[Rfam]
RNA: Glycine riboswitch aptamer
RNA sequence: CUCUGGAGAGACUUCGGCAUCAUAAGCCGUGGCACCGAUGGGGAAACUAUAGCCUUUCUUUGCAGGUCAGAAGAAUAGGUGGUAGGUAACUCUCAGGUACAAAGGACAGAG
Numbered sequence: 001c002u003c004u005g006g007a008g009a010g011a012c013u014u015c016g017g018c019a020u021c022a023u024a025a026g027c028c029g030u031g032g033c034a035c036c037g038a039u040g041g042g043g044a045a046a047c048u049a050u051a052g053c054c055u056u057u058c059u060u061u062g063c064a065g066g067u068c069a070g071a072a073g074a075a076u077a078g079g080u081g082g083u084a085g086g087u088a089a090c091u092c093u094c095a096g097g098u099a100c101a102a103a104g105g106a107c108a109g110a111g
Stems, first nucleotide, its partner, number of pairs: 001111005012032002015029004034098003037094002041092003047085004